RNA sequence: AUCUUUGCGUUUGGGGCAAUGAUGCAGGUAGUGAGGUUCUAACUGAGGCUUGUCUAUUGCUGGUUGAAAACUAUUUCCAAACCCCCUCUAUGGCUUGGGUUUACCCCAAGCCUUAGAGAUUUUUUGGACGGGCUUUGUUCUUUGUC
Numbered sequence: 001a002u003c004u005u006u007g008c009g010u011u012u013g014g015g016g017c018a019a020u021g022a023u024g025c026a027g028g029u030a031g032u033g034a035g036g037u038u039c040u041a042a043c044u045g046a047g048g049c050u051u052g053u054c055u056a057u058u059g060c061u062g063g064u065u066g067a068a069a070a071c072u073a074u075u076u077c078c079a080a081a082c083c084c085c086c087u088c089u090a091u092g093g094c095u096u097g098g099g100u101u102u103a104c105c106c107c108a109a110g111c112c113u114u115a116g117a118g119a120u121u122u123u124u125u126g127g128a129c130g131g132g133c134u135u136u137g138u139u140c141u142u143u144g145u146c
Stems, first nucleotide, its partner, number of pairs: 021054004027049001029047001035044003086118003090114001092112006098105002
Dot-bracket structure: ....................((((..(.(.....(((....)))..).).))))...............................(((.(.((((((((....)).)))))).).)))............................
U4 spliceosomal RNA: a 146-nucleotide RNA from Ipomoea nil. From the family's description: U4 small nuclear RNA (U4 snRNA) is a component of the major U2-dependent spliceosome.